[Rfam]
The family of this 205-nucleotide sequence from Xylanibacillus composti is "glmS glucosamine-6-phosphate activated ribozyme aptamer". It scores 80 bits against the family's covariance model. Pairs were carried over by alignment from the consensus structure, which is taken from published work. By type it is a riboswitch. This entry contains a glucosamine-6-phosphate activated ribozyme that is found in the mRNA for GlmS. GlmS is an enzyme that uses fructose-6-phosphate and glutamine to generate glucosamine-6-phosphate. The organism belongs to Xylanibacillus, within Bacteria.
RNA sequence: UCUGCAGCAAAAGCGCCAGAACUUUCAUGGAUCAUGCAGCAUGACGGACGAUAGAGGUCUUCAUCGAUGUAUGCGCUCGUGGAAGUUGACGAGGUAGAGGUGUUCGAAUGAUUCGGCGGGGACCUCUCGGUCACACAUCCUGACCGCAAGCUGGAAUCAAAACGGCUGGGCGACCGGCCCGACAAAGUUCCGGCGGGAUGUUGGG
Numbered sequence: 001u002c003u004g005c006a007g008c009a010a011a012a013g014c015g016c017c018a019g020a021a022c023u024u025u026c027a028u029g030g031a032u033c034a035u036g037c038a039g040c041a042u043g044a045c046g047g048a049c050g051a052u053a054g055a056g057g058u059c060u061u062c063a064u065c066g067a068u069g070u071a072u073g074c075g076c077u078c079g080u081g082g083a084a085g086u087u088g089a090c091g092a093g094g095u096a097g098a099g100g101u102g103u104u105c106g107a108a109u110g111a112u113u114c115g116g117c118g119g120g121g122a123c124c125u126c127u128c129g130g131u132c133a134c135a136c137a138u139c140c141u142g143a144c145c146g147c148a149a150g151c152u153g154g155a156a157u158c159a160a161a162a163c164g165g166c167u168g169g170g171c172g173a174c175c176g177g178c179c180c181g182a183c184a185a186a187g188u189u190c191c192g193g194c195g196g197g198a199u200g201u202u203g204g205g
Stems, first nucleotide, its partner, number of pairs: 020087008029078001096127005104116004128146006150194006164179006